[Rfam]
RNA sequence: UACAGUCUUUGGGGCAGGGUGUGAUUCCCUACCGGCGGUAUAGCCCGCGAGCCGUUUUGGCAUGACACGGUGAGAUUCCGUGGCCGACAGUAUAGUCUGGAUGAGAAAAGACUUGU
Numbered sequence: 001u002a003c004a005g006u007c008u009u010u011g012g013g014g015c016a017g018g019g020u021g022u023g024a025u026u027c028c029c030u031a032c033c034g035g036c037g038g039u040a041u042a043g044c045c046c047g048c049g050a051g052c053c054g055u056u057u058u059g060g061c062a063u064g065a066c067a068c069g070g071u072g073a074g075a076u077u078c079c080g081u082g083g084c085c086g087a088c089a090g091u092a093u094a095g096u097c098u099g100g101a102u103g104a105g106a107a108a109a110g111a112c113u114u115g116u
Stems, first nucleotide, its partner, number of pairs: 004113007017029003031096002033086002035048004043084002053060001066082005088099003
Record summary: This 116-nucleotide sequence from Anaerovibrio lipolyticus belongs to the Rfam family "FMN riboswitch aptamer (RFN element)". Rfam's curators write: The RFN element is a highly conserved domain that is found frequently in the 5'-untranslated regions of prokaryotic mRNAs that encode for flavin mononucleotide (FMN) biosynthesis and transport proteins.